[Rfam]
RNA sequence: UGACUACAAAAAUAAUUUAUUCUGUAGCCACUUUGAGUUACGAUAAUUACUAUGUUAAUUUACGAAAUUAUAGUGACUCCUUACUGAGUGGUUUACUAUAACGUUAUGGUAAAUAUCUCCUCAUGUUAUAGGAACCCAACUAUCAUAAAUACGUAUUGACAUUAUCGUAAAUUAGUAUAUAAAAUUAUCGUAAAUGAAGAUGGUUACGGAAUAACUUAUUUUGUAGCUA
Numbered sequence: 001u002g003a004c005u006a007c008a009a010a011a012a013u014a015a016u017u018u019a020u021u022c023u024g025u026a027g028c029c030a031c032u033u034u035g036a037g038u039u040a041c042g043a044u045a046a047u048u049a050c051u052a053u054g055u056u057a058a059u060u061u062a063c064g065a066a067a068u069u070a071u072a073g074u075g076a077c078u079c080c081u082u083a084c085u086g087a088g089u090g091g092u093u094u095a096c097u098a099u100a101a102c103g104u105u106a107u108g109g110u111a112a113a114u115a116u117c118u119c120c121u122c123a124u125g126u127u128a129u130a131g132g133a134a135c136c137c138a139a140c141u142a143u144c145a146u147a148a149a150u151a152c153g154u155a156u157u158g159a160c161a162u163u164a165u166c167g168u169a170a171a172u173u174a175g176u177a178u179a180u181a182a183a184a185u186u187a188u189c190g191u192a193a194a195u196g197a198a199g200a201u202g203g204u205u206a207c208g209g210a211a212u213a214a215c216u217u218a219u220u221u222u223g224u225a226g227c228u229a
Base pairs, nucleotide, nucleotide: 001229002228004226005225006224007223008222009221011220012219013218014217015216017214018213019212020211021210022209023208024207025206026205027204028203029202030201032199033198034197038193039192040191041190042189043188044187045186046185047184048183051179052178053177054176055175056174057173058172059171060170061169062168063167067165068164070162071161075156081148082147083146088143089142090141091140092139093138094133096131097130098129099128100127101126102125103124104123108118109117

The record is a 229-nucleotide sequence from Miscanthus lutarioriparius, which matches "MIR6217 microRNA precursor family" in Rfam. Gene Ontology terms of the family: miRNA-mediated post-transcriptional gene silencing and RISC complex. The family's consensus secondary structure was predicted with RNAalifold. Rfam 15.1 lists 2,266 matches to the family in 13 species. It scores 169 bits against the family's covariance model. Taxonomically the source falls in Miscanthus (Eukaryota, Euphyllophyta, commelinids, Andropogonodae).